[Rfam]
RNA sequence: GCAACAUGAUGAAACAUUUCCUACAUUCGCAGUUUCCACGCUAGCCAUCAACCUGAACCUUAGACCGAUGGACAAUGAGCGCGAAUACCUUCCUUGGAUGUCUGAUUGC
Numbered sequence: 001g002c003a004a005c006a007u008g009a010u011g012a013a014a015c016a017u018u019u020c021c022u023a024c025a026u027u028c029g030c031a032g033u034u035u036c037c038a039c040g041c042u043a044g045c046c047a048u049c050a051a052c053c054u055g056a057a058c059c060u061u062a063g064a065c066c067g068a069u070g071g072a073c074a075a076u077g078a079g080c081g082c083g084a085a086u087a088c089c090u091u092c093c094u095u096g097g098a099u100g101u102c103u104g105a106u107u108g109c
Base pairs, nucleotide, nucleotide: 001109002108003107004106045071046070047069048068049067

Small nucleolar RNA SNORD14: a 109-nucleotide sequence from Plenodomus lingam. Its family is annotated with RNA processing and nucleolus in the Gene Ontology. About the family: U14 small nucleolar RNA (U14 snoRNA) is required for early cleavages of eukaryotic precursor rRNAs. In yeasts, this molecule possess a stem-loop region (known as the Y-domain) which is essential for function. It scores 66 bits against the family's covariance model. The family's consensus secondary structure was predicted with PFOLD. NCBI's taxonomy places the organism under Eukaryota, Dikarya, dothideomyceta, Leptosphaeriaceae, Plenodomus lingam. The family's RNA type in Rfam is C/D-box small nucleolar RNA.